[Rfam]
RNA sequence: ACUGGAGGACUAAGAAGGUGGAGUCUGUGAAGCGGGGCUCUGCUGAUACCACCCUCCUAGAGAAAAGCAAUGGAGAGAGCAGUCUUACUUACAGACGAGCAGAGGACUGACUGUACCAUCCAACAUUU
Numbered sequence: 001a002c003u004g005g006a007g008g009a010c011u012a013a014g015a016a017g018g019u020g021g022a023g024u025c026u027g028u029g030a031a032g033c034g035g036g037g038c039u040c041u042g043c044u045g046a047u048a049c050c051a052c053c054c055u056c057c058u059a060g061a062g063a064a065a066a067g068c069a070a071u072g073g074a075g076a077g078a079g080c081a082g083u084c085u086u087a088c089u090u091a092c093a094g095a096c097g098a099g100c101a102g103a104g105g106a107c108u109g110a111c112u113g114u115a116c117c118a119u120c121c122a123a124c125a126u127u128u
Base pairs, nucleotide, nucleotide: 002060003059004057005056006055007054008053017044018043019042021040022039023038024037025036026035067121069119078112079111080109081108082107083106084105085104086103090101092099
RNA: Small Cajal body specific RNA 4